[Rfam]
RNA sequence: CACGUGCUCCGGGAUCGGUGAAAGUCCGAACCGGCGGUCAAAGUCCGCGACUCGCAGCCCUUCACGGCCGCGAUUGAACUGGUGAAAUUCCGGUACCGACAGUCACAGUCUGGAUGGGAGAAGCACAGG
Numbered sequence: 001c002a003c004g005u006g007c008u009c010c011g012g013g014a015u016c017g018g019u020g021a022a023a024g025u026c027c028g029a030a031c032c033g034g035c036g037g038u039c040a041a042a043g044u045c046c047g048c049g050a051c052u053c054g055c056a057g058c059c060c061u062u063c064a065c066g067g068c069c070g071c072g073a074u075u076g077a078a079c080u081g082g083u084g085a086a087a088u089u090c091c092g093g094u095a096c097c098g099a100c101a102g103u104c105a106c107a108g109u110c111u112g113g114a115u116g117g118g119a120g121a122a123g124c125a126c127a128g129g
Stems, first nucleotide, its partner, number of pairs: 004126005010120001016028003030109002032098002034048004043096002052073002078094005100112003
Dot-bracket structure: ...(((((.(.....(((.......))).[[((((((.....[[))))...((..................))....(((((.......)))))]])).(((.....]]))).......).)))))...
Rfam assigns this 129-nucleotide RNA sequence from Microbacterium sp. CH12i to the family "FMN riboswitch aptamer (RFN element)".
NCBI's taxonomy places the organism under Bacteria, Bacillati, Actinomycetes, Micrococcales, Microbacterium.
Pairs were carried over by alignment from the consensus structure, which is taken from published work.